[Rfam]
RNA sequence: ACGGCUGAGCCAUCUCUCCAGCCCAAAGUAAAUUAAUUAAAUAAAUAAUCUGUGUAUAAAUUGGCAUGGGGCUGGAGAGAUGGCUCAGCAGU
Numbered sequence: 001a002c003g004g005c006u007g008a009g010c011c012a013u014c015u016c017u018c019c020a021g022c023c024c025a026a027a028g029u030a031a032a033u034u035a036a037u038u039a040a041a042u043a044a045a046u047a048a049u050c051u052g053u054g055u056a057u058a059a060a061u062u063g064g065c066a067u068g069g070g071g072c073u074g075g076a077g078a079g080a081u082g083g084c085u086c087a088g089c090a091g092u
Stems, first nucleotide, its partner, number of pairs: 002091001004089021